[Rfam]
A member of the RNA family "MIR5269 microRNA precursor family" from Medicago truncatula, 80 nucleotides long. Gene Ontology terms of the family: miRNA-mediated post-transcriptional gene silencing and RISC complex. Pairs were carried over by alignment from the consensus structure, which was predicted with RNAalifold. Taxonomically the source falls in Medicago (Eukaryota, Magnoliopsida, Mesangiospermae, Gunneridae). A search with the family's covariance model found it, with a score of 68 bits.
RNA sequence: UUGAAUUAAUUCAAUGUGGGUCAUACACUUUGGGAAUGGAACCCAAAUAAAGUGGUGGAACAUACAUUGAUUUUAUCCAA
Number, nucleotide and partner (000 for none) at each position: 001u080002u079003g078004a000005a076006u075007u000008a073009a072010u000011u070012c069013a068014a067015u066016g065017u064018g063019g000020g000021u000022c000023a000024u057025a056026c054027a053028c052029u051030u050031u049032g048033g000034g000035a000036a000037u000038g000039g000040a000041a000042c000043c000044c000045a000046a000047a000048u032049a031050a030051a029052g028053u027054g026055g000056u025057g024058g000059a000060a000061c000062a000063u018064a017065c016066a015067u014068u013069g012070a011071u000072u009073u008074u000075a006076u005077c000078c003079a002080a001